[Rfam]
RNA sequence: AGGUUUUUUUUUUUUUAGAAUUUGUCUAGCUGGUUUUCUGGUUUUCACUGGAAAACCCAU
Numbered sequence: 001a002g003g004u005u006u007u008u009u010u011u012u013u014u015u016u017a018g019a020a021u022u023u024g025u026c027u028a029g030c031u032g033g034u035u036u037u038c039u040g041g042u043u044u045u046c047a048c049u050g051g052a053a054a055a056c057c058c059a060u
Stems, first nucleotide, its partner, number of pairs: 032057011
Record summary: A member of the RNA family "U7 small nuclear RNA" from Saimiri boliviensis, 60 nucleotides long. NCBI's taxonomy places the organism under Eukaryota, Metazoa, Euteleostomi, Theria, Saimiri boliviensis. On this family, see Spycher et al., Nucleic Acids Res 1994: "3' end processing of mouse histone pre-mRNA: evidence for additional base-pairing between U7 snRNA and pre-mRNA".